[Rfam]
RNA sequence: AGGCCUAAGUCUGCUCCUCAUUCCUUUGGGAGCAGGAAUACCUCCAUAACAUGCUACAUGAAAGGAGUUCUCAGGGCUGCCAACCUUCCAGGAGAGGUUGAGUAGUAGUAUAUUUCUCCUACAUAA
Numbered sequence: 001a002g003g004c005c006u007a008a009g010u011c012u013g014c015u016c017c018u019c020a021u022u023c024c025u026u027u028g029g030g031a032g033c034a035g036g037a038a039u040a041c042c043u044c045c046a047u048a049a050c051a052u053g054c055u056a057c058a059u060g061a062a063a064g065g066a067g068u069u070c071u072c073a074g075g076g077c078u079g080c081c082a083a084c085c086u087u088c089c090a091g092g093a094g095a096g097g098u099u100g101a102g103u104a105g106u107a108g109u110a111u112a113u114u115u116c117u118c119c120u121a122c123a124u125a126a
Stems, first nucleotide, its partner, number of pairs: 010036008064119004076106002080102001081100007
The record is a 126-nucleotide RNA sequence from Cnephaeus nilssonii, which matches "Small nucleolar RNA U109" in Rfam. The family's RNA type in Rfam is H/ACA-box small nucleolar RNA. The organism belongs to Cnephaeus, within Eukaryota. Rfam links the family to the GO terms RNA processing and nucleolus.